[Rfam]
RNA sequence: AAUAUUCAUUAACUCCGAAUCUGGUAGUCUAAUGGAAACUACGACAACCAGGUCGUUGGGUUUACCGGGAAACCGAUAAGCCUCCCGUUGCGGAAAGGAGUCAGUGCUACUAUUG
Numbered sequence: 001a002a003u004a005u006u007c008a009u010u011a012a013c014u015c016c017g018a019a020u021c022u023g024g025u026a027g028u029c030u031a032a033u034g035g036a037a038a039c040u041a042c043g044a045c046a047a048c049c050a051g052g053u054c055g056u057u058g059g060g061u062u063u064a065c066c067g068g069g070a071a072a073c074c075g076a077u078a079a080g081c082c083u084c085c086c087g088u089u090g091c092g093g094a095a096a097g098g099a100g101u102c103a104g105u106g107c108u109a110c111u112a113u114u115g
Stems, first nucleotide, its partner, number of pairs: 003109002006106001012101005019053007027045003034039001058083007066075003084093002
RNA: Molybdenum/Tungsten riboswitch aptamer (Moco RNA motif)
Organism: Sporomusa ovata